[Rfam]
RNA sequence: CCUGGGGUUCUGCCCCCAGUACCCUACCAAGACAUGCGGUUGGAGUAAUCCGGUGGUGUGAAGCUCUUGGAACAAUGGAUGCCUCGCUUGCAAAAGCGGUAGUGAACCCGCGAGGAGUUCACUACGACUGCUAGCAUCAAAGCGGUCGGGAAC
Number, nucleotide and partner (000 for none) at each position: 001c000002c019003u018004g017005g016006g015007g014008u000009u000010c000011u000012g000013c000014c007015c006016c005017c004018a003019g002020u000021a000022c000023c000024c000025u000026a000027c000028c069029a068030a067031g066032a065033c060034a059035u058036g057037c056038g000039g054040u053041u052042g051043g050044a049045g000046u000047a000048a000049u044050c043051c042052g041053g040054u039055g000056g037057u036058g035059u034060g033061a000062a000063g000064c000065u032066c031067u030068u029069g028070g000071a000072a000073c000074a000075a000076u000077g000078g000079a000080u000081g000082c000083c000084u099085c098086g097087c096088u095089u094090g000091c000092a000093a000094a089095a088096g087097c086098g085099g084100u124101a123102g122103u121104g000105a000106a000107c000108c115109c114110g000111c000112g000113a000114g109115g108116a000117g000118u000119u000120c000121a103122c102123u101124a100125c000126g000127a146128c145129u144130g143131c142132u141133a000134g000135c000136a000137u000138c000139a000140a000141a132142g131143c130144g129145g128146u127147c000148g000149g000150g000151a000152a000153c000
RNA: Group II catalytic intron D1-D4-7
Organism: Ktedonobacter racemifer